[Rfam]
RNA sequence: CUCAAGACGGGAGGCAAUGAUCCGCCGGACGUACCGCUGCGGCCACCGCAGUCCGGCGGGGAGCCACUGGUGAGACCGGCCCGCGUGCCG
Numbered sequence: 001c002u003c004a005a006g007a008c009g010g011g012a013g014g015c016a017a018u019g020a021u022c023c024g025c026c027g028g029a030c031g032u033a034c035c036g037c038u039g040c041g042g043c044c045a046c047c048g049c050a051g052u053c054c055g056g057c058g059g060g061g062a063g064c065c066a067c068u069g070g071u072g073a074g075a076c077c078g079g080c081c082c083g084c085g086u087g088c089c090g
Stems, first nucleotide, its partner, number of pairs: 001090001005086001008083004013065003022059008041077002044072004
Shown here is a 90-nucleotide sequence, a member of the family "c-di-GMP-II-GAG riboswitch aptamer".
It is one of the family's seed sequences.
Gene Ontology terms of the family: cyclic-di-GMP binding and regulation of gene expression.
The family is grouped with related families in Rfam's "c-di-GMP_II riboswitch clan".